[Rfam]
RNA: Small nucleolar RNA SNORD35
RNA sequence: UGCAGCUGAUGUUUUUCUCAUGAUGGUCUUCUAAACCUUGUGGUUAUGACGACGUUGCAAAAUGGCAACACUGAUGCAGUUCC
Dot-bracket structure: ((((......................................................................)))).....
Numbered sequence: 001u002g003c004a005g006c007u008g009a010u011g012u013u014u015u016u017c018u019c020a021u022g023a024u025g026g027u028c029u030u031c032u033a034a035a036c037c038u039u040g041u042g043g044u045u046a047u048g049a050c051g052a053c054g055u056u057g058c059a060a061a062a063u064g065g066c067a068a069c070a071c072u073g074a075u076g077c078a079g080u081u082c083c
Stems, first nucleotide, its partner, number of pairs: 001078004